[Rfam]
RNA sequence: CGCCCCGUCAUUGGGGAGUAGCCUCUUUUCUCUUUAGAAAAGAUGGGUGUCAACAUACUUGCUGUCGUUCUCUGUGUUCACAGCAUGGCACUCAUGAUUACCAGAUUUGGCAAGACUAUUGACUACGUACACUCUGCAUGGCUGGGGAGCGCGCGUGGUCAUUCGUGUUUGCCAGCCGAGGUUAAUU
Number, nucleotide and partner (000 for none) at each position: 001c000002g000003c000004c000005c000006c000007g000008u000009c000010a000011u000012u000013g000014g000015g000016g000017a000018g000019u000020a000021g000022c000023c000024u000025c000026u041027u040028u039029u000030c000031u000032c000033u000034u000035u000036a000037g000038a000039a028040a027041a026042g000043a095044u094045g093046g092047g091048u090049g089050u088051c087052a086053a000054c000055a000056u000057a000058c000059u000060u085061g084062c083063u082064g081065u000066c000067g000068u000069u000070c000071u000072c000073u000074g000075u000076g000077u000078u000079c000080a000081c064082a063083g062084c061085a060086u052087g051088g050089c049090a048091c047092u046093c045094a044095u043096g186097a000098u184099u000100a182101c181102c180103a000104g000105a000106u000107u000108u000109g000110g000111c000112a000113a000114g000115a000116c000117u000118a000119u000120u000121g000122a000123c000124u000125a000126c000127g000128u000129a000130c000131a000132c000133u000134c000135u000136g000137c000138a000139u000140g000141g000142c000143u000144g000145g000146g000147g000148a000149g000150c000151g000152c000153g000154c000155g000156u000157g000158g000159u000160c000161a000162u000163u000164c000165g000166u000167g000168u000169u000170u000171g000172c000173c000174a000175g000176c000177c000178g000179a000180g102181g101182u100183u000184a098185a000186u096187u000